[Rfam]
Nucleotides: 087
Base pairs, nucleotide, nucleotide: 002086003085004084005083006082008080009079010078012076013075014074015073016072017071018070019069020068021067022066023065026063027062028061029060030059031058032057033056034055035054036053037052
Number, partner (000 for none) and nucleotide at each position: 001000a002086c003085c004084c005083c006082a007000c008080u009079g010078u011000c012076u013075u014074g015073u016072a017071u018070g019069g020068c021067u022066u023065u024000u025000u026063a027062u028061u029060c030059c031058u032057a033056u034055g035054u036053g037052a038000u039000u040000a041000u042000c043000c044000u045000g046000c047000u048000c049000a050000u051000u052037u053036c054035a055034u056033a057032u058031a059030g060029g061028g062027a063026u064000u065023g066022a067021a068020g069019c070018c071017g072016u073015g074014c075013a076012a077000a078010a079009c080008g081000c082006u083005g084004g085003g086002g087000g